Rfam assigns this 158-nucleotide sequence from Arboricoccus pini to the family "FMN riboswitch aptamer (RFN element)". A search with the family's covariance model found it, with a score of 104 bits. About the family: The RFN element is a highly conserved domain that is found frequently in the 5'-untranslated regions of prokaryotic mRNAs that encode for flavin mononucleotide (FMN) biosynthesis and transport proteins.

[Rfam]
RNA sequence: GCACGAUCUCGGGGCGAGGUGAAAUUCCUCACCGGCGGUAAGCAUUCGCGCGCAAGCGCGACGGCAGAGCCCGCGAGCGAUCAUCGCCAUCGGCGGUGUCAGCAGAUUCGGUGCAAUUCCGAAGCCGACGGUCAUAGUCCGGACGGAAGAGAUUGAGC
Numbered sequence: 001g002c003a004c005g006a007u008c009u010c011g012g013g014g015c016g017a018g019g020u021g022a023a024a025u026u027c028c029u030c031a032c033c034g035g036c037g038g039u040a041a042g043c044a045u046u047c048g049c050g051c052g053c054a055a056g057c058g059c060g061a062c063g064g065c066a067g068a069g070c071c072c073g074c075g076a077g078c079g080a081u082c083a084u085c086g087c088c089a090u091c092g093g094c095g096g097u098g099u100c101a102g103c104a105g106a107u108u109c110g111g112u113g114c115a116a117u118u119c120c121g122a123a124g125c126c127g128a129c130g131g132u133c134a135u136a137g138u139c140c141g142g143a144c145g146g147a148a149g150a151g152a153u154u155g156a157g158c
Stems, first nucleotide, its partner, number of pairs: 004155007017029003031138002033127002035074004069125002077103002107123005129141003